[Rfam]
RNA sequence: ACCCCUGGCAGCCCCUCCUGAUGAUUCUUCUUCCUGAGCACGCUCAUGAUGAGCAAACUGAGCCUCUAAGAAGUUGACUGAAGGGGCUGCUUCCCC
Numbered sequence: 001a002c003c004c005c006u007g008g009c010a011g012c013c014c015c016u017c018c019u020g021a022u023g024a025u026u027c028u029u030c031u032u033c034c035u036g037a038g039c040a041c042g043c044u045c046a047u048g049a050u051g052a053g054c055a056a057a058c059u060g061a062g063c064c065u066c067u068a069a070g071a072a073g074u075u076g077a078c079u080g081a082a083g084g085g086g087c088u089g090c091u092u093c094c095c096c
Base pairs, nucleotide, nucleotide: 007091008090009089010088011087012086013085014084015083

Rfam assigns this 96-nucleotide sequence to the family "Small nucleolar RNA SNORD125". The family's consensus secondary structure was predicted with WAR. On this family, see Yang et al., Nucleic Acids Res 2006: "snoSeeker: an advanced computational package for screening of guide and orphan snoRNA genes in the human genome". It is annotated as a C/D-box small nucleolar RNA.